[Rfam]
RNA sequence: AUCUUAUCCAGAGAGGUUGAGGGAAUGGCCCUAUGAAUCCUCGGCAACAGACUCUAAAGUACUGUGCCAAUUCCAAAAAGCGAAAGCUUAGUAGAUAAGAA
Dot-bracket structure: .(((((((....((((....(((..[[[))).......))))((((.((.(((....)))..))))))...(]]]..((((....))))...)))))))).
Numbered sequence: 001a002u003c004u005u006a007u008c009c010a011g012a013g014a015g016g017u018u019g020a021g022g023g024a025a026u027g028g029c030c031c032u033a034u035g036a037a038u039c040c041u042c043g044g045c046a047a048c049a050g051a052c053u054c055u056a057a058a059g060u061a062c063u064g065u066g067c068c069a070a071u072u073c074c075a076a077a078a079a080g081c082g083a084a085a086g087c088u089u090a091g092u093a094g095a096u097a098a099g100a101a
Stems, first nucleotide, its partner, number of pairs: 002100007013042004021031003026075003043068004048064002051060003072093001078089004
SAM riboswitch aptamer (S box leader): a 101-nucleotide RNA from Lederbergia lenta.
Taxonomically the source falls in Lederbergia (Bacteria, Bacillati, Bacillota, Bacillaceae).
The match comes from Rfam's covariance-model search (81 bits).
Its family is annotated with regulation of gene expression in the Gene Ontology.
The base pairs follow the family's consensus structure, which is taken from published work.